[Rfam]
The family of this 103-nucleotide RNA from Marinobacterium iners is "Guanidine-I riboswitch aptamer".
Its family is annotated with regulation of gene expression in the Gene Ontology.
NCBI's taxonomy places the organism under Bacteria, Pseudomonadati, Gammaproteobacteria, Oceanospirillales, Marinobacterium iners.
RNA sequence: CCAAUAGUGCGCCAGGGUUCCGGCUGCACAGUUGCUGUGACUGGUCCGAGAGCACUCGAUCUUUCAGUGAGGGGUUGCACGAUAGGACAAAAGCCCGGCAGAU
Numbered sequence: 001c002c003a004a005u006a007g008u009g010c011g012c013c014a015g016g017g018u019u020c021c022g023g024c025u026g027c028a029c030a031g032u033u034g035c036u037g038u039g040a041c042u043g044g045u046c047c048g049a050g051a052g053c054a055c056u057c058g059a060u061c062u063u064u065c066a067g068u069g070a071g072g073g074g075u076u077g078c079a080c081g082a083u084a085g086g087a088c089a090a091a092a093g094c095c096c097g098g099c100a101g102a103u
Base pairs, nucleotide, nucleotide: 007057009055011053012052015047016046020044021043022041023038024037026035027034028033058076059075060074061073062072063071064070065069078098080101085095086094
Rfam's curators write: This family represents a conserved RNA structure found upstream of the ykkC and yxkD genes in Bacillus subtilis and related genes in other bacteria. The function of this family is unclear although it has been suggested that it may function to switch on efflux pumps and detoxification systems in response to harmful environmental molecules.